Shown here is a 586-nucleotide part of an RNA from Vidua macroura, a member of the family "Eukaryotic large subunit ribosomal RNA". A search with the family's covariance model found it, with a score of 2892 bits. The literature on the family includes a 2001 paper in Science by Yusupov et al., "Crystal structure of the ribosome at 5.5 A resolution".
RNA sequence: CCCUCCGAAGUUUCCCUCAGGAUAGCUGGCACUCAUUGGUAUAAUCAGUUUUAUCCGGUAAAGCGAAUGAUUAGAGGUACUGGGUUCGAAAUGGACUCAACCUAUUCUCAAACUUUAAAUGGGUGAGAUGCUCGACUCGCCUCGUGUGCGUGUGUGUAAUGCGCGGAGUCGGGCGUUGAAUGUGCGAGUGCCAAGUGGGCCAUUUUUGGUAAGCAGAACUGGCGCUGUGGGAUGAACCAAACGCGUGGUUAAGGUGCCUAACGCGGACGCUCAUGAGAUACCACAAAAGGUGUUGGUUAAUAUAGACAGCAGGACGGUGGCCAUGGAAGUCGGCAUCCGCUAAGGAGUGUGUAACAACUCACCUGCCGAAUUGACCAGCCCUGAAAAUGGAUGGCGCUAGAGCGUCGGACCUAUACCGCGCCGUCAUCGCAAGCUGGAUCCACUGGGGUUGUACAUUCAGUGUGCGUGUGUGAUCGCAAGUACAUUCAUGGUCCAGGCAUGGAGCGCGAUGACGAGUAGGAGGGUCGCCGUGGUGAGCGUAGAAGCCUCUGGCGUGAGUCAGGGUGGAGCCGCCACGGGUGCAGAU
Numbered sequence: 001c002c003c004u005c006c007g008a009a010g011u012u013u014c015c016c017u018c019a020g021g022a023u024a025g026c027u028g029g030c031a032c033u034c035a036u037u038g039g040u041a042u043a044a045u046c047a048g049u050u051u052u053a054u055c056c057g058g059u060a061a062a063g064c065g066a067a068u069g070a071u072u073a074g075a076g077g078u079a080c081u082g083g084g085u086u087c088g089a090a091a092u093g094g095a096c097u098c099a100a101c102c103u104a105u106u107c108u109c110a111a112a113c114u115u116u117a118a119a120u121g122g123g124u125g126a127g128a129u130g131c132u133c134g135a136c137u138c139g140c141c142u143c144g145u146g147u148g149c150g151u152g153u154g155u156g157u158a159a160u161g162c163g164c165g166g167a168g169u170c171g172g173g174c175g176u177u178g179a180a181u182g183u184g185c186g187a188g189u190g191c192c193a194a195g196u197g198g199g200c201c202a203u204u205u206u207u208g209g210u211a212a213g214c215a216g217a218a219c220u221g222g223c224g225c226u227g228u229g230g231g232a233u234g235a236a237c238c239a240a241a242c243g244c245g246u247g248g249u250u251a252a253g254g255u256g257c258c259u260a261a262c263g264c265g266g267a268c269g270c271u272c273a274u275g276a277g278a279u280a281c282c283a284c285a286a287a288a289g290g291u292g293u294u295g296g297u298u299a300a301u302a303u304a305g306a307c308a309g310c311a312g313g314a315c316g317g318u319g320g321c322c323a324u325g326g327a328a329g330u331c332g333g334c335a336u337c338c339g340c341u342a343a344g345g346a347g348u349g350u351g352u353a354a355c356a357a358c359u360c361a362c363c364u365g366c367c368g369a370a371u372u373g374a375c376c377a378g379c380c381c382u383g384a385a386a387a388u389g390g391a392u393g394g395c396g397c398u399a400g401a402g403c404g405u406c407g408g409a410c411c412u413a414u415a416c417c418g419c420g421c422c423g424u425c426a427u428c429g430c431a432a433g434c435u436g437g438a439u440c441c442a443c444u445g446g447g448g449u450u451g452u453a454c455a456u457u458c459a460g461u462g463u464g465c466g467u468g469u470g471u472g473a474u475c476g477c478a479a480g481u482a483c484a485u486u487c488a489u490g491g492u493c494c495a496g497g498c499a500u501g502g503a504g505c506g507c508g509a510u511g512a513c514g515a516g517u518a519g520g521a522g523g524g525u526c527g528c529c530g531u532g533g534u535g536a537g538c539g540u541a542g543a544a545g546c547c548u549c550u551g552g553c554g555u556g557a558g559u560c561a562g563g564g565u566g567g568a569g570c571c572g573c574c575a576c577g578g579g580u581g582c583a584g585a586u
Stems, first nucleotide, its partner, number of pairs: 001524006011024001013022003027193007049128008061116001062114002068110003073105001075103003081099005087093001130174009199223004204218005228239003243421005249415001253411003262408001264407001268404003288382003292379010309366005315339003320334003340344001345360001349358002422514009526581001528578008537570002545565002551560003
NCBI's taxonomy places the organism under Eukaryota, Chordata, Gnathostomata, Telluraves, Vidua.